[Rfam]
RNA sequence: GAUCAGUUGAUGAGCAAAUACUGCAACAAUAUGAUGGAGAAAUCUUUAUGAUUCUUAGUAUUUAAGUCUCUGAUGAUC
Numbered sequence: 001g002a003u004c005a006g007u008u009g010a011u012g013a014g015c016a017a018a019u020a021c022u023g024c025a026a027c028a029a030u031a032u033g034a035u036g037g038a039g040a041a042a043u044c045u046u047u048a049u050g051a052u053u054c055u056u057a058g059u060a061u062u063u064a065a066g067u068c069u070c071u072g073a074u075g076a077u078c
Stems, first nucleotide, its partner, number of pairs: 001078005036047004
Description:
Shown here is a 78-nucleotide RNA sequence, a member of the family "Small nucleolar RNA Z199". On this family, see Chen et al., Nucleic Acids Res 2003: "The high diversity of snoRNAs in plants: identification and comparative study of 120 snoRNA genes from Oryza sativa". About the family: snoZ199 is a C/D box small nucleolar RNA, which acts as a methylation guide RNA for sites on 18S and 25S rRNA. Rice snoZ199 is reported to be homologous to Arabidopsis snoR13. Gene Ontology terms of the family: nucleolus and RNA processing. Rfam's curators put it in the seed alignment.